[Rfam]
RNA: Streptococcus sRNA SpF59 (ldcC RNA)
RNA sequence: UGACCACUUCUGUUUUUUAGAAGUCAAGGCCAUACGGACAGCCGGGUCAACUGCCGA
Numbered sequence: 001u002g003a004c005c006a007c008u009u010c011u012g013u014u015u016u017u018u019a020g021a022a023g024u025c026a027a028g029g030c031c032a033u034a035c036g037g038a039c040a041g042c043c044g045g046g047u048c049a050a051c052u053g054c055c056g057a
Stems, first nucleotide, its partner, number of pairs: 001049005006024006